TPP riboswitch aptamer (THI element): a 121-nucleotide RNA. From the family's description: Vitamin B(1) in its active form thiamin pyrophosphate (TPP) is an essential coenzyme that is synthesised by coupling of pyrimidine and thiazole moieties in bacteria. A search with the family's covariance model found it, with a score of 68 bits.

RNA sequence: AACAGACGCUAGGGGGGCCUGAAUUUGCUACAUAUAGCAUAUUCUUAAAUUGGCUGAGAACUUUAAACUCUUUGUACCUGAUCAGGUUAAUACCUGCGUAGGGAAGCGUUUCUGUUUAAUU
Numbered sequence: 001a002a003c004a005g006a007c008g009c010u011a012g013g014g015g016g017g018c019c020u021g022a023a024u025u026u027g028c029u030a031c032a033u034a035u036a037g038c039a040u041a042u043u044c045u046u047a048a049a050u051u052g053g054c055u056g057a058g059a060a061c062u063u064u065a066a067a068c069u070c071u072u073u074g075u076a077c078c079u080g081a082u083c084a085g086g087u088u089a090a091u092a093c094c095u096g097c098g099u100a101g102g103g104a105a106g107c108g109u110u111u112c113u114g115u116u117u118a119a120u121u
Base pairs, nucleotide, nucleotide: 006109007108008107009106010105011071012070013069014068017054018053019052021050077102078101079100080099083096084095085094086093